This 112-nucleotide sequence from Mycolicibacterium chubuense belongs to the Rfam family "TPP riboswitch aptamer (THI element)".
RNA sequence: AGUCGUCCACGCGGGAGCGCACGCCAAGAGCGCUGAGAGGACGGCUGACGCGCCGUCGACCGUACGAACCUGACCGGGUAAUGCCGGCGUAGGGAGAUGCCAUGAGUGACGU
Numbered sequence: 001a002g003u004c005g006u007c008c009a010c011g012c013g014g015g016a017g018c019g020c021a022c023g024c025c026a027a028g029a030g031c032g033c034u035g036a037g038a039g040g041a042c043g044g045c046u047g048a049c050g051c052g053c054c055g056u057c058g059a060c061c062g063u064a065c066g067a068a069c070c071u072g073a074c075c076g077g078g079u080a081a082u083g084c085c086g087g088c089g090u091a092g093g094g095a096g097a098u099g100c101c102a103u104g105a106g107u108g109a110c111g112u
Base pairs, nucleotide, nucleotide: 007099010096011063012062013061014060017033018032019031020030040057041056042055043054044053069093070092071091072090074087075086076085077084
A search with the family's covariance model found it, with a score of 55 bits.